[Rfam]
RNA sequence: GGGCUGCUAGCUCAACUGGCAGAGCAACGGACUCUUAAUCCGUAGGUUGAAAGUUCGAUCCUUUCGCAGCCCA
Numbered sequence: 001g002g003g004c005u006g007c008u009a010g011c012u013c014a015a016c017u018g019g020c021a022g023a024g025c026a027a028c029g030g031a032c033u034c035u036u037a038a039u040c041c042g043u044a045g046g047u048u049g050a051a052a053g054u055u056c057g058a059u060c061c062u063u064u065c066g067c068a069g070c071c072c073a
Base pairs, nucleotide, nucleotide: 001072002071003070004069005068006067007066010025011024012023013022027043028042029041030040031039049065050064051063052062053061
The family of this 73-nucleotide sequence from Desulfarculus baarsii is "tRNA". It is annotated as a transfer RNA. NCBI's taxonomy places the organism under Bacteria, Pseudomonadati, Desulfarculia, Desulfarculus, Desulfarculus baarsii. The base pairs follow the family's consensus structure, which is taken from published work.